[Rfam]
RNA sequence: GUUCCACUGGUCUAGUGGUCAUGACGUCUGCUUUACACGCAGAAGAUCGCUGGUUCGAACCCAGCGUGGAACA
Numbered sequence: 001g002u003u004c005c006a007c008u009g010g011u012c013u014a015g016u017g018g019u020c021a022u023g024a025c026g027u028c029u030g031c032u033u034u035a036c037a038c039g040c041a042g043a044a045g046a047u048c049g050c051u052g053g054u055u056c057g058a059a060c061c062c063a064g065c066g067u068g069g070a071a072c073a
Base pairs, nucleotide, nucleotide: 001072002071003070004069005068006067007066010025011024012023027043028042029041030040031039049065050064051063052062053061
Record summary: Rfam assigns this 73-nucleotide sequence from Catenaria anguillulae to the family "tRNA". Pairs were carried over by alignment from the consensus structure, which is taken from published work. Rfam's curators write: Transfer RNA (tRNA) molecules are approximately 80 nucleotides in length. Their secondary structure includes four short double-helical elements and three loops (D, anti-codon, and T loops). Further hydrogen bonds mediate the characteristic L-shaped molecular structure. tRNAs have two regions of fundamental functional importance: the anti-codon, which is responsible for specific mRNA codon recognition, and the 3' end, to which the tRNAs corresponding amino acid is attached (by aminoacyl-tRNA synthetases). tRNAs cope with the degeneracy of the genetic code in two manners: having more than one tRNA (with a specific anti-codon) for a particular amino acid; and 'wobble' base-pairing, i.e. permitting non-standard base-pairing at the 3rd anti-codon position. Lineage of the source: Eukaryota > Fungi > Catenariaceae > Catenaria > Catenaria anguillulae. It scores 67 bits against the family's covariance model. Rfam classes the family as a transfer RNA.